Shown here is a 100-nucleotide RNA sequence from Shewanella violacea, a member of the family "Alpha operon ribosome binding site". The family's consensus secondary structure is taken from published work. The organism belongs to Shewanella, within Bacteria. Rfam links the family to the GO term ribosome binding. Rfam describes the family as follows. The bacterial alpha operon ribosome binding site is surrounded by this complex pseudoknotted structure. Rfam classes the family as a cis-regulatory element. Rfam's curators put it in the seed alignment.
RNA sequence: AACUGUCGUCUGUCGAGUAUCCUACCGGGCUUUUCACAGAUGACCAUUAACUAUUGAGGAGUGCAUAGUGGCCCGUAUCGCUGGCAUUAACAUUCCUGAU
Numbered sequence: 001a002a003c004u005g006u007c008g009u010c011u012g013u014c015g016a017g018u019a020u021c022c023u024a025c026c027g028g029g030c031u032u033u034u035c036a037c038a039g040a041u042g043a044c045c046a047u048u049a050a051c052u053a054u055u056g057a058g059g060a061g062u063g064c065a066u067a068g069u070g071g072c073c074c075g076u077a078u079c080g081c082u083g084g085c086a087u088u089a090a091c092a093u094u095c096c097u098g099a100u
Stems, first nucleotide, its partner, number of pairs: 005044009021084002026075004034099002